[Rfam]
RNA: Eukaryotic large subunit ribosomal RNA, nucleotides 2085 to 2684
Organism: Silurus meridionalis
RNA sequence: GAAGACCCUGUUGAGCUUGACUCUAGUCUGGCACUGUGAAGAGACAUGAGGGGUGUAGAAUAAGUGGGAGGCCCCGCUCCGCCGGGCGCCGCCAGUGAAAUACCACUACUCUUAUCGUUUCCUCACUAACCCGGUGAGGCGGGGAGGCGAGCCCCGGUGGGCUCUCGCUUCUGGCUUCCAAGCCCUCCCCGGUGCCCCGGCGACCCCGGGGCCACCGGGGGCGGCGACCCGCUCCGGGGACAGUGGCAGGUGGGGAGUUUGACUGGGGCGGUACACCUGUCAAAGCGUAACGCAGGUGUCCUAAGGCGAGCUCGGGGAGGACAGAAACCUCCCGUGGAGCAGAAGGGCAAAAGCUCGCUUGAUCUUGAUUUUCAGUAUGAAUACAGACCGUGAAAGCGGGGCCUCACGAUCCUUCUGGCUUUUUGGGUUUUAAGCAGGAGGUGUCAGAAAAGUUACCACAGGGAUAACUGGCUUGUGGCGGCCAAGCGUUCAUAGCGACGUCGCUUUUUGAUCCUUCGAUGUCGGCUCUUCCUAUCAUUGUGAAGCAGAAUUCACCAAGCGUUGGAUUGUUCACCCACUAACAGGGAACGUGAGCUGGGU
Numbered sequence: 001g002a003a004g005a006c007c008c009u010g011u012u013g014a015g016c017u018u019g020a021c022u023c024u025a026g027u028c029u030g031g032c033a034c035u036g037u038g039a040a041g042a043g044a045c046a047u048g049a050g051g052g053g054u055g056u057a058g059a060a061u062a063a064g065u066g067g068g069a070g071g072c073c074c075c076g077c078u079c080c081g082c083c084g085g086g087c088g089c090c091g092c093c094a095g096u097g098a099a100a101u102a103c104c105a106c107u108a109c110u111c112u113u114a115u116c117g118u119u120u121c122c123u124c125a126c127u128a129a130c131c132c133g134g135u136g137a138g139g140c141g142g143g144g145a146g147g148c149g150a151g152c153c154c155c156g157g158u159g160g161g162c163u164c165u166c167g168c169u170u171c172u173g174g175c176u177u178c179c180a181a182g183c184c185c186u187c188c189c190c191g192g193u194g195c196c197c198c199g200g201c202g203a204c205c206c207c208g209g210g211g212c213c214a215c216c217g218g219g220g221g222c223g224g225c226g227a228c229c230c231g232c233u234c235c236g237g238g239g240a241c242a243g244u245g246g247c248a249g250g251u252g253g254g255g256a257g258u259u260u261g262a263c264u265g266g267g268g269c270g271g272u273a274c275a276c277c278u279g280u281c282a283a284a285g286c287g288u289a290a291c292g293c294a295g296g297u298g299u300c301c302u303a304a305g306g307c308g309a310g311c312u313c314g315g316g317g318a319g320g321a322c323a324g325a326a327a328c329c330u331c332c333c334g335u336g337g338a339g340c341a342g343a344a345g346g347g348c349a350a351a352a353g354c355u356c357g358c359u360u361g362a363u364c365u366u367g368a369u370u371u372u373c374a375g376u377a378u379g380a381a382u383a384c385a386g387a388c389c390g391u392g393a394a395a396g397c398g399g400g401g402c403c404u405c406a407c408g409a410u411c412c413u414u415c416u417g418g419c420u421u422u423u424u425g426g427g428u429u430u431u432a433a434g435c436a437g438g439a440g441g442u443g444u445c446a447g448a449a450a451a452g453u454u455a456c457c458a459c460a461g462g463g464a465u466a467a468c469u470g471g472c473u474u475g476u477g478g479c480g481g482c483c484a485a486g487c488g489u490u491c492a493u494a495g496c497g498a499c500g501u502c503g504c505u506u507u508u509u510g511a512u513c514c515u516u517c518g519a520u521g522u523c524g525g526c527u528c529u530u531c532c533u534a535u536c537a538u539u540g541u542g543a544a545g546c547a548g549a550a551u552u553c554a555c556c557a558a559g560c561g562u563u564g565g566a567u568u569g570u571u572c573a574c575c576c577a578c579u580a581a582c583a584g585g586g587a588a589c590g591u592g593a594g595c596u597g598g599g600u
Base pairs, nucleotide, nucleotide: 007462008461009460010459012458013457014454015453016452017451018450020258021257022256023255027250028249029248030247032245033244036126037125038124039123041121042120043119044118045117046115047114048113049112050111051110052109063107064106065105066104067103070090071089130238131237132236133235134234140231141230142229143228149164150163151162152161153160182225183224184223186221187220188219189218190217191216192215193214194213261274262272263271264270275297276296277295278294279293280292300401301400306358307357308356309355310354311353312338313337315333316332317331318330319329320328339348340347363387364386365385368382369381370380371379389398390397391396412440413439414438415437416436417435420434421433422432471512473510475509477505478504479503480502481501482500486496487495523598524596525595526594527593528590529587530586531585532584533583536561540555541554542553543552544551563577564576565575567573